Shown here is a 60-nucleotide RNA sequence from Krasilnikovia cinnamomea, a member of the family "msiK RNA". The source organism's lineage runs through Bacteria, Bacillati, Actinomycetota, Micromonosporaceae and Krasilnikovia. The match comes from Rfam's covariance-model search (49 bits). The base pairs follow the family's consensus structure, which is taken from published work. The family's RNA type in Rfam is cis-regulatory element.
RNA sequence: GGCUCUCGUUCCUCCACUCGGAUCGUCCGGCACGUUCCUGCCGGUGGAAAGGAAGCACUU
Numbered sequence: 001g002g003c004u005c006u007c008g009u010u011c012c013u014c015c016a017c018u019c020g021g022a023u024c025g026u027c028c029g030g031c032a033c034g035u036u037c038c039u040g041c042c043g044g045u046g047g048a049a050a051g052g053a054a055g056c057a058c059u060u
Stems, first nucleotide, its partner, number of pairs: 010051001013048004027044006